[Rfam]
RNA sequence: GCUGUCUUAUGAAACUUGUGCGUGUCAACUGAUCCCAGAAUCCCCUGGGGCUCCCGGUGGCCUGGGUUGGUGUUCUGUCAGCUGGUUGUUCCUGGGCCUCAGGGCUCUGGGGGCAUAAUCUGACUGUCACCCUGAAAAC
Numbered sequence: 001g002c003u004g005u006c007u008u009a010u011g012a013a014a015c016u017u018g019u020g021c022g023u024g025u026c027a028a029c030u031g032a033u034c035c036c037a038g039a040a041u042c043c044c045c046u047g048g049g050g051c052u053c054c055c056g057g058u059g060g061c062c063u064g065g066g067u068u069g070g071u072g073u074u075c076u077g078u079c080a081g082c083u084g085g086u087u088g089u090u091c092c093u094g095g096g097c098c099u100c101a102g103g104g105c106u107c108u109g110g111g112g113g114c115a116u117a118a119u120c121u122g123a124c125u126g127u128c129a130c131c132c133u134g135a136a137a138a139c
Stems, first nucleotide, its partner, number of pairs: 001139001003137001043104011
Description
This 139-nucleotide sequence from Coregonus sp. 'balchen' belongs to the Rfam family "Small nucleolar RNA SNORD10". On this family, see Huttenhofer et al., EMBO J 2001: "RNomics: an experimental approach that identifies 201 candidates for novel, small, non-messenger RNAs in mouse". Gene Ontology terms of the family: RNA processing and nucleolus. It is annotated as a C/D-box small nucleolar RNA. Rfam 15.1 lists 433 matches to the family in 306 species.